Record summary
This 47-nucleotide RNA from Cymbidium lancifolium belongs to the Rfam family "Plastid-rpoB 5UTR RNA". Rfam classes the family as a cis-regulatory element. Rfam describes the family as follows. Plastid rpoB is a non-coding RNA (ncRNA) recognised in plastids. It was found in the 5 prime untranslated region (5UTR) of a chloroplast-encoded RNA polymerase subunit (rpoB) in plastids, suggesting a posible cis-regulatory function.
RNA sequence: CUGCUGUUCCUGAUUCUUCUGUUUUUAUCUCAUUCAUAGAGAACAGA
Numbered sequence: 001c002u003g004c005u006g007u008u009c010c011u012g013a014u015u016c017u018u019c020u021g022u023u024u025u026u027a028u029c030u031c032a033u034u035c036a037u038a039g040a041g042a043a044c045a046g047a
Stems, first nucleotide, its partner, number of pairs: 004046006